[Rfam]
Shown here is a 103-nucleotide sequence from Ziziphus jujuba, a member of the family "Small nucleolar RNA snoR99". Its family is annotated with RNA processing and nucleolus in the Gene Ontology. The organism belongs to Ziziphus jujuba, within Eukaryota.
Nucleotides: 103
Base pairs, nucleotide, nucleotide: 038097040095041094042093043092055083056082057081058080059079060078062076
Number, partner (000 for none) and nucleotide at each position: 001000g002000u003000g004000c005000u006000u007000u008000a009000g010000u011000g012000a013000u014000u015000a016000a017000a018000a019000g020000u021000c022000c023000c024000u025000c026000a027000u028000a029000u030000u031000u032000a033000a034000c035000a036000c037000a038097u039000c040095c041094a042093u043092c044000c045000a046000a047000c048000u049000c050000a051000c052000u053000u054000u055083g056082u057081c058080a059079g060078c061000u062076g063000u064000c065000u066000u067000c068000c069000u070000g071000g072000u073000u074000u075000c076062u077000u078060g079059c080058u081057g082056a083055u084000c085000a086000u087000u088000a089000a090000c091000g092043g093042a094041u095040g096000c097038a098000a099000a100000u101000c102000c103000u